[Rfam]
RNA sequence: AAACAGCCCCCUAUGUUUUGAUUCUUUGGCAGUUUUGGACCCCCAAUCCAUUGUUGACUCGGUCAACGCUGACGUGGCAUCUUAAGUGAGGUGUCACGUGUCAUAUUUUUUUUUGCCUUGGGGUCCAAAGCUGCCAAAGAAUCAAAACAUAGGGGGCUGUUU
Numbered sequence: 001a002a003a004c005a006g007c008c009c010c011c012u013a014u015g016u017u018u019u020g021a022u023u024c025u026u027u028g029g030c031a032g033u034u035u036u037g038g039a040c041c042c043c044c045a046a047u048c049c050a051u052u053g054u055u056g057a058c059u060c061g062g063u064c065a066a067c068g069c070u071g072a073c074g075u076g077g078c079a080u081c082u083u084a085a086g087u088g089a090g091g092u093g094u095c096a097c098g099u100g101u102c103a104u105a106u107u108u109u110u111u112u113u114u115g116c117c118u119u120g121g122g123g124u125c126c127a128a129a130g131c132u133g134c135c136a137a138a139g140a141a142u143c144a145a146a147a148c149a150u151a152g153g154g155g156g157c158u159g160u161u162u
Base pairs, nucleotide, nucleotide: 001162002161004159005158006157007156008155012151013150014149015148016147017146018145019144020143021142022141023140024139025138026137027136028135029134030133031132032131033130034129035128036127037126038125039124040123041122042121043120045118072099073098075096076095077094078093079092080091081090082089
The record is a 162-nucleotide sequence from Medicago truncatula, which matches "MIR2619 microRNA precursor family" in Rfam.
The source organism's lineage runs through Eukaryota, Mesangiospermae, eudicotyledons, rosids and Medicago.
The base pairs follow the family's consensus structure, which was predicted with RNAalifold.
A search with the family's covariance model found it, with a score of 116 bits.
Gene Ontology terms of the family: RISC complex and miRNA-mediated post-transcriptional gene silencing.